[Rfam]
The family of this 215-nucleotide RNA sequence from Capra hircus is "Small nucleolar RNA U3". Small nucleolar RNAs (snoRNAs) are involved in the processing and modification of rRNA in the nucleolus. There are two main classes of snoRNAs: the box C/D class, and the box H/ACA class.
RNA sequence: AAGACUAUACUUUCAGGGAUCAUUUCUAUAGUUCGUGACUAGAGAAGUUUCUCUGAUCGUGUAGAGCACCCGAAACCACGAGGAGGAGACGCAGCGUUUUCUUCUGAGCGUGAAGUAGGUGUUUGGUGCUGUUUGCGCAGUUGCCAUCUGCCGUUGAUGAUCGUUCUUUUCUCCCGUUUGGGAGAGUAAGAGGGAGAAAACGCCGUCUGAGUGGU
Numbered sequence: 001a002a003g004a005c006u007a008u009a010c011u012u013u014c015a016g017g018g019a020u021c022a023u024u025u026c027u028a029u030a031g032u033u034c035g036u037g038a039c040u041a042g043a044g045a046a047g048u049u050u051c052u053c054u055g056a057u058c059g060u061g062u063a064g065a066g067c068a069c070c071c072g073a074a075a076c077c078a079c080g081a082g083g084a085g086g087a088g089a090c091g092c093a094g095c096g097u098u099u100u101c102u103u104c105u106g107a108g109c110g111u112g113a114a115g116u117a118g119g120u121g122u123u124u125g126g127u128g129c130u131g132u133u134u135g136c137g138c139a140g141u142u143g144c145c146a147u148c149u150g151c152c153g154u155u156g157a158u159g160a161u162c163g164u165u166c167u168u169u170u171c172u173c174c175c176g177u178u179u180g181g182g183a184g185a186g187u188a189a190g191a192g193g194g195a196g197a198a199a200a201c202g203c204c205g206u207c208u209g210a211g212u213g214g215u
Stems, first nucleotide, its partner, number of pairs: 002040002005037001006035001009032003015027004049065002054061001075215005094203012108164003118152004124146004128141005167189002169186007
Overview
The match comes from Rfam's covariance-model search (191 bits). The family's RNA type in Rfam is C/D-box small nucleolar RNA. A reference for the family is Marz and Stadler (2010), "Comparative analysis of eukaryotic U3 snoRNA", RNA Biol.